[Rfam]
RNA sequence: CGAGUCCCGUCCGGUAGAGGCUGGCCACCAGCCGGAAGCCACCAUUGCGUCGUCGUCAGAGAUGGCGGCACGAAGCGUAUGGGGCGAGUCCAAAAGCCGUGUGAAUGAGUCCCGAAAUAAAGAUGAACGUUGGAGCCUUCGCGAUCGUUCAACCGAGGGCCGCGCCGACACGCCGCGAAAGCCUGGCGUGAAGGUCCGACCGGGAUCUGAGAGCA
Numbered sequence: 001c002g003a004g005u006c007c008c009g010u011c012c013g014g015u016a017g018a019g020g021c022u023g024g025c026c027a028c029c030a031g032c033c034g035g036a037a038g039c040c041a042c043c044a045u046u047g048c049g050u051c052g053u054c055g056u057c058a059g060a061g062a063u064g065g066c067g068g069c070a071c072g073a074a075g076c077g078u079a080u081g082g083g084g085c086g087a088g089u090c091c092a093a094a095a096g097c098c099g100u101g102u103g104a105a106u107g108a109g110u111c112c113c114g115a116a117a118u119a120a121a122g123a124u125g126a127a128c129g130u131u132g133g134a135g136c137c138u139u140c141g142c143g144a145u146c147g148u149u150c151a152a153c154c155g156a157g158g159g160c161c162g163c164g165c166c167g168a169c170a171c172g173c174c175g176c177g178a179a180a181g182c183c184u185g186g187c188g189u190g191a192a193g194g195u196c197c198g199a200c201c202g203g204g205a206u207c208u209g210a211g212a213g214c215a
Base pairs, nucleotide, nucleotide: 010036011035012034013033014032019029020028023183024182025181038085039084042082043081044080045079046077047076048072049071050070053068054067055066056065057064058063106209107207109206110205111204112203113202114201129200130199131198132197133196134195135160136159137158140155141154165194166193169190170189171188172187173186174185

Rfam assigns this 215-nucleotide sequence from Chthoniobacter flavus to the family "Group II catalytic intron D1-D4-6". NCBI's taxonomy places the organism under Bacteria, Pseudomonadati, Verrucomicrobiota, Chthoniobacteraceae, Chthoniobacter flavus. About the family: Group II introns are found in rRNA, tRNA and mRNA of organelles in fungi, plants and protists, and also in mRNA in bacteria. The sequence is in the family's curated seed alignment. Its family is annotated with Group II intron splicing in the Gene Ontology.